[Rfam]
Nucleotides: 120
Stems, first nucleotide, its partner, number of pairs: 006033003010029007058116002061112003066104004075099006084090001
Number, partner (000 for none) and nucleotide at each position: 001000c002000u003000g004000a005000c006033a007032a008031g009000u010029u011028g012027g013026c014025g015024g016023c017000c018000c019000c020000c021000a022000u023016g024015c025014c026013g027012c028011c029010a030000u031008c032007u033006u034000c035000g036000c037000g038000a039000g040000g041000a042000g043000g044000g045000g046000a047000u048000a049000g050000a051000u052000c053000g054000a055000c056000g057000c058116g059115u060000c061112a062111a063110g064000a065000a066104a067103u068102c069101g070000u071000u072000u073000c074000a075099a076098u077097u078096g079095c080094c081000a082000u083000g084090g085000c086000u087000u088000c089000c090084c091000g092000u093000a094080g095079g096078c097077a098076a099075u100000a101069u102068g103067a104066u105000u106000g107000u108000u109000g110063c111062u112061u113000g114000c115059g116058u117000a118000c119000a120000c
Rfam assigns this 120-nucleotide sequence from Triticum aestivum to the family "Small nucleolar RNA snoR111". Its family is annotated with nucleolus and RNA processing in the Gene Ontology. Rfam classes the family as an H/ACA-box small nucleolar RNA. A reference for the family is Marker et al. (2002), "Experimental RNomics: identification of 140 candidates for small non-messenger RNAs in the plant Arabidopsis thaliana", Curr Biol.